The record is a 118-nucleotide RNA sequence from Zophobas morio, which matches "U4atac minor spliceosomal RNA" in Rfam. Rfam's curators write: U4atac is an essential component of the minor U12-type spliceosome complex which is required for removal of the rarer class of eukaryotic introns (AT-AC, U12-type). Rfam classes the family as a spliceosomal small nuclear RNA. Taxonomically the source falls in Zophobas (Eukaryota, Altocrustacea, Pterygota, Tenebrioninae). A search with the family's covariance model found it, with a score of 81 bits. Its Rfam clan is "U4 clan".

[Rfam]
RNA sequence: GCCUUCCUUGUCUGGGGGAGCAGAGUGUUCAAUGAUCAAUAAGUGAGACCACUCCUGCUAGCACCCAAUCAAUUUAAAUGAUCGCACCCGCAGCCCUGCGAGUGCAAUUUUUGGAAAG
Numbered sequence: 001g002c003c004u005u006c007c008u009u010g011u012c013u014g015g016g017g018g019a020g021c022a023g024a025g026u027g028u029u030c031a032a033u034g035a036u037c038a039a040u041a042a043g044u045g046a047g048a049c050c051a052c053u054c055c056u057g058c059u060a061g062c063a064c065c066c067a068a069u070c071a072a073u074u075u076a077a078a079u080g081a082u083c084g085c086a087c088c089c090g091c092a093g094c095c096c097u098g099c100g101a102g103u104g105c106a107a108u109u110u111u112u113g114g115a116a117a118g
Base pairs, nucleotide, nucleotide: 005019006018007017008016009015020058021057022056023055024053025052026051027050029048030047037043084105085104086103087102089100090099091098092097